[Rfam]
RNA sequence: GCAUGUAUUCGUCUCAGUCCACAUGUGUUGAAGUUGAUUGGAGUGAAAUUAAACUAAGUUCAAUUCCAAUCCACUCCAACACAUGUGGAUUGAAGUGGAUACACAU
Number, nucleotide and partner (000 for none) at each position: 001g000002c000003a000004u103005g102006u101007a100008u099009u098010c097011g096012u095013c000014u093015c092016a091017g090018u089019c088020c087021a086022c085023a084024u083025g082026u081027g080028u079029u078030g077031a000032a000033g074034u073035u000036g071037a070038u069039u068040g067041g066042a000043g064044u063045g000046a000047a000048a000049u000050u000051a000052a000053a000054c000055u000056a000057a000058g000059u000060u000061c000062a000063a044064u043065u000066c041067c040068a039069a038070u037071c036072c000073a034074c033075u000076c000077c030078a029079a028080c027081a026082c025083a024084u023085g022086u021087g020088g019089a018090u017091u016092g015093a014094a000095g012096u011097g010098g009099a008100u007101a006102c005103a004104c000105a000106u000
A member of the RNA family "MIR5565 microRNA precursor family" from Miscanthus lutarioriparius, 106 nucleotides long. Pairs were carried over by alignment from the consensus structure, which was predicted with RNAalifold.